The record is a 121-nucleotide sequence from Tupaia belangeri, which matches "Small nucleolar RNA SNORA26" in Rfam. The snoRNA HBI-6 belong to the H/ACA family of snoRNAs, guiding the pseudouridylation of position U4522 if the 28S rRNA. HBI-6 is the human orthologue of mouse MBI-6 snoRNA. For this family Rfam cites "RNomics: an experimental approach that identifies 201 candidates for novel, small, non-messenger RNAs in mouse" (Huttenhofer et al., EMBO J, 2001). Its family is annotated with RNA processing and nucleolus in the Gene Ontology.

[Rfam]
RNA sequence: GUGCCCUUCUAAGGCUGCCGCAGUGCUUUAAGAGUCUAACAUAGAAGGUUAAAAGCAAGACUCCAUAAAACUCAGAGAAGAGACUGUAAAACUCCUCUGGAACCUGUCUGGAGUCACAACU
Numbered sequence: 001g002u003g004c005c006c007u008u009c010u011a012a013g014g015c016u017g018c019c020g021c022a023g024u025g026c027u028u029u030a031a032g033a034g035u036c037u038a039a040c041a042u043a044g045a046a047g048g049u050u051a052a053a054a055g056c057a058a059g060a061c062u063c064c065a066u067a068a069a070a071c072u073c074a075g076a077g078a079a080g081a082g083a084c085u086g087u088a089a090a091a092c093u094c095c096u097c098u099g100g101a102a103c104c105u106g107u108c109u110g111g112a113g114u115c116a117c118a119a120c121u
Stems, first nucleotide, its partner, number of pairs: 002051002005048006014040001016038002021032001059115001061113005072100005080094003085090001

The family is grouped with related families in Rfam's "SNORA27 clan". It is annotated as an H/ACA-box small nucleolar RNA.